[Rfam]
RNA sequence: AUGAUAUGACGAUAUAAUUCAUGUCUGUCAAUCCACUGAAUACAUUUGGUAUGAUGUAAAGAGUGAAUCCUGACAGGUUCUGAUCAU
Numbered sequence: 001a002u003g004a005u006a007u008g009a010c011g012a013u014a015u016a017a018u019u020c021a022u023g024u025c026u027g028u029c030a031a032u033c034c035a036c037u038g039a040a041u042a043c044a045u046u047u048g049g050u051a052u053g054a055u056g057u058a059a060a061g062a063g064u065g066a067a068u069c070c071u072g073a074c075a076g077g078u079u080c081u082g083a084u085c086a087u
Stems, first nucleotide, its partner, number of pairs: 001087004

The family of this 87-nucleotide sequence from Anisodus acutangulus is "Small nucleolar RNA snoR14". Rfam 15.1 lists 668 matches to the family in 221 species. A search with the family's covariance model found it, with a score of 65 bits. NCBI's taxonomy places the organism under Eukaryota, Streptophyta, eudicotyledons, asterids, Anisodus. Clan: SNORD110 clan. Its family is annotated with nucleolus and RNA processing in the Gene Ontology. By type it is a C/D-box small nucleolar RNA.